The record is a 143-nucleotide RNA from Branchiostoma belcheri, which matches "U8 small nucleolar RNA" in Rfam.

RNA sequence: GUAUCGGUAGGGUAAUCCUUACCUGUUGUCUCUUGUGAGACUUCAGUAAUGGAUUACGUAUGAUGAAGCGAGACUUAUGACUCCAGGUGAGUUAGACCGUCUCGGGGUUUGGGGACUGCAACACCCUCAAGCUCAUUUCUGAC
Numbered sequence: 001g002u003a004u005c006g007g008u009a010g011g012g013u014a015a016u017c018c019u020u021a022c023c024u025g026u027u028g029u030c031u032c033u034u035g036u037g038a039g040a041c042u043u044c045a046g047u048a049a050u051g052g053a054u055u056a057c058g059u060a061u062g063a064u065g066a067a068g069c070g071a072g073a074c075u076u077a078u079g080a081c082u083c084c085a086g087g088u089g090a091g092u093u094a095g096a097c098c099g100u101c102u103c104g105g106g107g108u109u110u111g112g113g114g115a116c117u118g119c120a121a122c123a124c125c126c127u128c129a130a131g132c133u134c135a136u137u138u139c140u141g142a143c
Base pairs, nucleotide, nucleotide: 023046024045025044028041029040030039031038032037079103080102083099107132108131109130110129111128112126113125

The family has 55 seed sequences and 1,597 matches in Rfam 15.1. It is annotated as a C/D-box small nucleolar RNA.